[Rfam]
RNA sequence: AAAAUGAAUAGAGGUUGCAGUCAACAAGAGUAAUCAAUCAAACCGGCAGGUAAAGCGAUUGAUGAAAGGGAAGAUUGCCGAAAUAACAACAUGGCAAUGUUGGUUGUUGGUCCAGACAUUAACAGUGGUUGGAUUGUCGCAAGGAAUUGCGGAGCGCUAUCAAUGAU
Numbered sequence: 001a002a003a004a005u006g007a008a009u010a011g012a013g014g015u016u017g018c019a020g021u022c023a024a025c026a027a028g029a030g031u032a033a034u035c036a037a038u039c040a041a042a043c044c045g046g047c048a049g050g051u052a053a054a055g056c057g058a059u060u061g062a063u064g065a066a067a068g069g070g071a072a073g074a075u076u077g078c079c080g081a082a083a084u085a086a087c088a089a090c091a092u093g094g095c096a097a098u099g100u101u102g103g104u105u106g107u108u109g110g111u112c113c114a115g116a117c118a119u120u121a122a123c124a125g126u127g128g129u130u131g132g133a134u135u136g137u138c139g140c141a142a143g144g145a146a147u148u149g150c151g152g153a154g155c156g157c158u159a160u161c162a163a164u165g166a167u
Stems, first nucleotide, its partner, number of pairs: 008160004017078006025070001033063007082108005087102006109135007117127003137152006
About this RNA:
The family of this 167-nucleotide sequence from Weissella ceti is "Lysine riboswitch aptamer". Lineage of the source: Bacteria > Bacilli > Lactobacillales > Lactobacillaceae > Weissella.